[Rfam]
The record is a 76-nucleotide sequence from Chionoecetes opilio, which matches "let-7 microRNA precursor family" in Rfam. A reference for the family is Ambros (2001), "microRNAs: tiny regulators with great potential", Cell. This family represents the microRNAs (miRNA) let-7 and mir-98. let-7 was identified from a study of developmental timing in C. elegans, and was later shown to be part of a much larger class of non-coding RNAs termed miRNAs.
RNA sequence: UCUGGUGAGGUAGUAGGUUGUAUAGUUGAGAGCUACAUCAUUCCAGGAGAACUGUACAACUUGCUAACUUUCCAGG
Numbered sequence: 001u002c003u004g005g006u007g008a009g010g011u012a013g014u015a016g017g018u019u020g021u022a023u024a025g026u027u028g029a030g031a032g033c034u035a036c037a038u039c040a041u042u043c044c045a046g047g048a049g050a051a052c053u054g055u056a057c058a059a060c061u062u063g064c065u066a067a068c069u070u071u072c073c074a075g076g
Base pairs, nucleotide, nucleotide: 001076002075003074004073005072007070008069009068011066012065013064014063015062016061017060018059019058020057021056022055023054024053025052026051030039031038042049
Dot-bracket structure: (((((.(((.((((((((((((((((...((......))..(......).)))))))))))))))).))).)))))

The family has 64 seed sequences and 8,694 matches in Rfam 15.1.